The record is a 230-nucleotide RNA, which matches "HNH endonuclease-associated RNA and ORF (HEARO) RNA" in Rfam. The family's consensus secondary structure is taken from published work. The literature on the family includes a 2009 paper in Nature by Weinberg et al., "Exceptional structured noncoding RNAs revealed by bacterial metagenome analysis".
[Rfam]
RNA sequence: GUCAACCACCCCGCCCUGAAGGGCGGAGCUUGAAAGGAGGUUCGACAAGCUCGGGUUGACCAGGGAAAGCGGUACCCAACCCCCUACGUUGGCAACAGGUACAAGACCCACCCCGGGAUGCUUCCUCAGUCCCGGGCUCUGGAAGUUCCGGAUGCAGACAACCGCGAGGGCCAGGACGAAACGGUCCGGGACAAUACGCCGGUACGAAACAUUCCCGAGGGGAGAUGCUU
Dot-bracket structure: (((((((..(.((.((....)).))..)((((.............))))....)))))))..(((((((.((........)).))..(((....((.(.........((..(((((((([.[[[[[[.))))))))....))..(((((((((..............................))))))))).......).))....))).)))))..]]]]]].]....